[Rfam]
RNA sequence: CUGGAAGUUUGAGUGGAUCUGACCUUAGUACGAGAGGACCGGGUUGGACAGACCGCUGGUGAACCUGUUAUGCCGCCAGGUGUACGGCAGGGUAGCUACGUCUGGAAUAGAUAAGCGCUGAAAGCAUCUAAGUGCGAAACUAGCCACGAGAUGAGACUUCCUCAUAGGGCCGUUGGAGAUUACAACGUUGAUAGGUCACAGGUGUACAGGUUGAGAGACCAAAGCCGAGUGAUACUAAUAACCCGAAG
Dot-bracket structure: ..((((((((..((((..(((((((...............))))))).(((((...(((....(((((((((((....))))))..)))))....))).)))))...(((....(((((...........)))))....))).))))......)))))))).....(((.(((((.......)))))....((((((((.((..(...((((....)))))...))..))))).)))....)))....
RNA: Bacterial large subunit ribosomal RNA, nucleotides 2628 to 2875